[Rfam]
RNA sequence: GCUAGGCAAGAUGUUGGCAUAGCUGAAUGACGUACAGUUACUCAGCUGCGCUACAUACUGCCACGCA
Numbered sequence: 001g002c003u004a005g006g007c008a009a010g011a012u013g014u015u016g017g018c019a020u021a022g023c024u025g026a027a028u029g030a031c032g033u034a035c036a037g038u039u040a041c042u043c044a045g046c047u048g049c050g051c052u053a054c055a056u057a058c059u060g061c062c063a064c065g066c067a
Base pairs, nucleotide, nucleotide: 005062006061007060011056012055013054014053016052017051018050022046023045024044025043026042
RNA: mir-72 microRNA precursor family